[Rfam]
RNA sequence: GGGUCGCUGGUCUAAUGGUAUGAUUCAACAUUCGGGUUGUUGAAGUUCGGGGUUCGAUUCCCCGGUGACCCC
Numbered sequence: 001g002g003g004u005c006g007c008u009g010g011u012c013u014a015a016u017g018g019u020a021u022g023a024u025u026c027a028a029c030a031u032u033c034g035g036g037u038u039g040u041u042g043a044a045g046u047u048c049g050g051g052g053u054u055c056g057a058u059u060c061c062c063c064g065g066u067g068a069c070c071c072c
Stems, first nucleotide, its partner, number of pairs: 001071007010024003026042005048064005
tRNA: a 72-nucleotide sequence from Cafeteria roenbergensis. Pairs were carried over by alignment from the consensus structure, which is taken from published work. It scores 51 bits against the family's covariance model. Gene Ontology term of the family: triplet codon-amino acid adaptor activity.